[Rfam]
RNA sequence: UUAGCCUUUAAAUCCAGUCCCGUGAGGCUGGCAAGGCAAGGACAAUCUGGCUAUAGCUAUAUAAAUAUGUCUGUUAGCCUAAGCUCCUGCCUGCCGCCUUGCGGAAAAAGCAGGAGCUUUUAUU
Numbered sequence: 001u002u003a004g005c006c007u008u009u010a011a012a013u014c015c016a017g018u019c020c021c022g023u024g025a026g027g028c029u030g031g032c033a034a035g036g037c038a039a040g041g042a043c044a045a046u047c048u049g050g051c052u053a054u055a056g057c058u059a060u061a062u063a064a065a066u067a068u069g070u071c072u073g074u075u076a077g078c079c080u081a082a083g084c085u086c087c088u089g090c091c092u093g094c095c096g097c098c099u100u101g102c103g104g105a106a107a108a109a110g111c112a113g114g115a116g117c118u119u120u121u122a123u124u
Base pairs, nucleotide, nucleotide: 004037005036006035007034008033014031015030016029017028018027019026049079050078051077053074054073055072056071058069059068060067061066081119082118083117084116085115086114087113088112089111090110092108
A member of the RNA family "PyrR binding site" from Thermobaculum terrenum, 124 nucleotides long. Rfam classes the family as a cis-regulatory element. The organism belongs to Thermobaculum terrenum, within Bacteria. This family represents the PyrR binding site and terminator structure.